[Rfam]
RNA: Flavo-1 RNA
RNA sequence: UGAUUUCCGCGUUAGGGAUUGCAGCGGCAUCCUUUUUUAGCGGCUGGGCCGACUAAAAAAGAUACAGCGGAAAGCCCGCCCCGCC
Numbered sequence: 001u002g003a004u005u006u007c008c009g010c011g012u013u014a015g016g017g018a019u020u021g022c023a024g025c026g027g028c029a030u031c032c033u034u035u036u037u038u039a040g041c042g043g044c045u046g047g048g049c050c051g052a053c054u055a056a057a058a059a060a061g062a063u064a065c066a067g068c069g070g071a072a073a074g075c076c077c078g079c080c081c082c083g084c085c
Base pairs, nucleotide, nucleotide: 015077016076017075019073020072024068025067029063030062031061035058036057037056038055039054041051042050043049